[Rfam]
RNA sequence: UCGGUCCCGGUUCACGUGGCGCAAACGGCGCCGCGACCCGGCACC
Numbered sequence: 001u002c003g004g005u006c007c008c009g010g011u012u013c014a015c016g017u018g019g020c021g022c023a024a025a026c027g028g029c030g031c032c033g034c035g036a037c038c039c040g041g042c043a044c045c
Base pairs, nucleotide, nucleotide: 003045004044005043007041008040009039010038015035016034017033018032019031020030021029022028
Rfam assigns this 45-nucleotide RNA sequence from Streptomyces alkaliphilus to the family "L31-Actinobacteria ribosomal protein leader". The match comes from Rfam's covariance-model search (54 bits). For this family Rfam cites "Discovery of 20 novel ribosomal leader candidates in bacteria and archaea" (Eckert and Weinberg, BMC Microbiol, 2020). Pairs were carried over by alignment from the consensus structure, which is taken from published work. The organism belongs to Streptomyces, within Bacteria.